[Rfam]
RNA sequence: ACCCUAAUGGCCAAACCUGCCGUGAGACAGGGACGGAAAGCUACAGGUCUAUGUUUUGAUGUCAUUAGAUGGCUGAGCUGCGCAGA
Numbered sequence: 001a002c003c004c005u006a007a008u009g010g011c012c013a014a015a016c017c018u019g020c021c022g023u024g025a026g027a028c029a030g031g032g033a034c035g036g037a038a039a040g041c042u043a044c045a046g047g048u049c050u051a052u053g054u055u056u057u058g059a060u061g062u063c064a065u066u067a068g069a070u071g072g073c074u075g076a077g078c079u080g081c082g083c084a085g086a
Stems, first nucleotide, its partner, number of pairs: 004082001011036002016031004021026001034072001039079004044075003047070005

The record is an 86-nucleotide RNA from Neptuniibacter caesariensis, which matches "c-di-GMP-I-GGC riboswitch aptamer" in Rfam.
Lineage of the source: Bacteria > Pseudomonadati > Pseudomonadota > Oceanospirillales > Neptuniibacter.
Rfam 15.1 lists 1,298 matches to the family in 717 species.
Its Rfam clan is "c-di-GMP_I riboswitch clan".
The match comes from Rfam's covariance-model search (60 bits).